[Rfam]
Shown here is a 47-nucleotide RNA sequence from Ipomoea nil, a member of the family "Plastid-rpl16 group II-D1 intron". Rfam links the family to the GO term Group II intron splicing. The organism belongs to Ipomoea, within Eukaryota. Plastid-rpl16 is a non-coding RNA (ncRNA) recognised in plastids. It was recognised in and intronic region of a ribosome rpl16 gene. The family has 538 seed sequences and 1,446 matches in Rfam 15.1. A search with the family's covariance model found it, with a score of 53 bits.
RNA sequence: AAGAGCUUCGAGCCAAUAAAGACUGAGAAGAAUGGCUCAAGACUUUA
Numbered sequence: 001a002a003g004a005g006c007u008u009c010g011a012g013c014c015a016a017u018a019a020a021g022a023c024u025g026a027g028a029a030g031a032a033u034g035g036c037u038c039a040a041g042a043c044u045u046u047a
Stems, first nucleotide, its partner, number of pairs: 007041002010038006017031001
Dot-bracket structure: ......((.((((((.(.............).)))))).))......